The family of this 362-nucleotide RNA from Campylobacter portucalensis is "transfer-messenger RNA".
By type it is a non-coding RNA gene.
Rfam's curators write: Bacterial tmRNA, also known as 10Sa RNA or SsrA, is named for its dual tRNA and mRNA-like properties. Its role is to liberate the mRNA from a stalled ribosome. To accomplish this part of the tmRNA is used as a reading frame that ends in a translation stop signal.
Taxonomically the source falls in Campylobacter (Bacteria, Pseudomonadati, Campylobacterales, Campylobacteraceae).
Its family is annotated with RNA catabolic process in the Gene Ontology.
[Rfam]
RNA sequence: GGGGGUGACUUGGCUUCGACAGGAGUGGAGUGAUCACAGUGGCAUGUCGCUUUGAACAAAGCGUUAAAAGUUCAAAUUAAAAUUAAACGCAAAUAACGUUAAAUUUGCUCCUGCUUACGCAAAAGUAGCGUAAGUUCAGUUGAGCCUUGCUAAGUGCUGAUACUAUUUAGGUGCUUGUGCGAGUCAUUUUUAAUAGUGUAGUUUAGGUGUUUGACGAGCAUUUAGAUGAAAUUUUAGUCUUAGUCUAAAAGUAUGGUUUUGGAAAGUGAGCCUUUUUAGAUGAAUUUUUCACUUUUGCUAAACAUGUAGAGGCUUUGAAAUUUUGCUUUUGGACUGCGGUUCGACACCGCACACCUCCACCA
Numbered sequence: 001g002g003g004g005g006u007g008a009c010u011u012g013g014c015u016u017c018g019a020c021a022g023g024a025g026u027g028g029a030g031u032g033a034u035c036a037c038a039g040u041g042g043c044a045u046g047u048c049g050c051u052u053u054g055a056a057c058a059a060a061g062c063g064u065u066a067a068a069a070g071u072u073c074a075a076a077u078u079a080a081a082a083u084u085a086a087a088c089g090c091a092a093a094u095a096a097c098g099u100u101a102a103a104u105u106u107g108c109u110c111c112u113g114c115u116u117a118c119g120c121a122a123a124a125g126u127a128g129c130g131u132a133a134g135u136u137c138a139g140u141u142g143a144g145c146c147u148u149g150c151u152a153a154g155u156g157c158u159g160a161u162a163c164u165a166u167u168u169a170g171g172u173g174c175u176u177g178u179g180c181g182a183g184u185c186a187u188u189u190u191u192a193a194u195a196g197u198g199u200a201g202u203u204u205a206g207g208u209g210u211u212u213g214a215c216g217a218g219c220a221u222u223u224a225g226a227u228g229a230a231a232u233u234u235u236a237g238u239c240u241u242a243g244u245c246u247a248a249a250a251g252u253a254u255g256g257u258u259u260u261g262g263a264a265a266g267u268g269a270g271c272c273u274u275u276u277u278a279g280a281u282g283a284a285u286u287u288u289u290c291a292c293u294u295u296u297g298c299u300a301a302a303c304a305u306g307u308a309g310a311g312g313c314u315u316u317g318a319a320a321u322u323u324u325g326c327u328u329u330u331g332g333a334c335u336g337c338g339g340u341u342c343g344a345c346a347c348c349g350c351a352c353a354c355c356u357c358c359a360c361c362a
Stems, first nucleotide, its partner, number of pairs: 001358007020331010034318003038314003043306005048063005053074005113135008146183005152176007164196001167193002201227009213240001243281009256271003261298001263296002266292003335351005